[Rfam]
RNA sequence: ACAAAGGCUCUUUUAAGAGCCACCCACAUUUACAAAAAAGAGCUGU
Numbered sequence: 001a002c003a004a005a006g007g008c009u010c011u012u013u014u015a016a017g018a019g020c021c022a023c024c025c026a027c028a029u030u031u032a033c034a035a036a037a038a039a040g041a042g043c044u045g046u
Base pairs, nucleotide, nucleotide: 006021007020008019009018010017011016

The record is a 46-nucleotide sequence from Columba livia, which matches "Histone 3' UTR stem-loop" in Rfam. The base pairs follow the family's consensus structure, which is taken from published work. Lineage of the source: Eukaryota > Opisthokonta > Eumetazoa > Columbimorphae > Columba.